[Rfam]
Rfam assigns this 70-nucleotide sequence from Medicago truncatula to the family "MIR2629 microRNA precursor family". The base pairs follow the family's consensus structure, which was predicted with RNAalifold.

RNA sequence: UACCGAAGUUUUCCUCGGUAGUUAACUGCAGCCGGUUUCAUAAUUCGACAGUUAACUGCCGAAAGACAUU
Numbered sequence: 001u002a003c004c005g006a007a008g009u010u011u012u013c014c015u016c017g018g019u020a021g022u023u024a025a026c027u028g029c030a031g032c033c034g035g036u037u038u039c040a041u042a043a044u045u046c047g048a049c050a051g052u053u054a055a056c057u058g059c060c061g062a063a064a065g066a067c068a069u070u
Base pairs, nucleotide, nucleotide: 012066013065015063016061017060018059019058020057021056022055023054024053025052026051027050028049